This 77-nucleotide RNA sequence from Mycobacterium sherrisii belongs to the Rfam family "Fluoride riboswitch aptamer (crcB RNA motif)".
The source organism's lineage runs through Bacteria, Actinomycetes, Mycobacteriales, Mycobacteriaceae and Mycobacterium simiae complex.
RNA sequence: ACUGACAUCGGCGAUGGAGUCCGCCGGAAAGCUUUGCUUUCGAACCGCCGCAUAAGGCUGAUGGCGCCUGCGAACCG
Numbered sequence: 001a002c003u004g005a006c007a008u009c010g011g012c013g014a015u016g017g018a019g020u021c022c023g024c025c026g027g028a029a030a031g032c033u034u035u036g037c038u039u040u041c042g043a044a045c046c047g048c049c050g051c052a053u054a055a056g057g058c059u060g061a062u063g064g065c066g067c068c069u070g071c072g073a074a075c076c077g
Stems, first nucleotide, its partner, number of pairs: 010025004016068002019065003047058003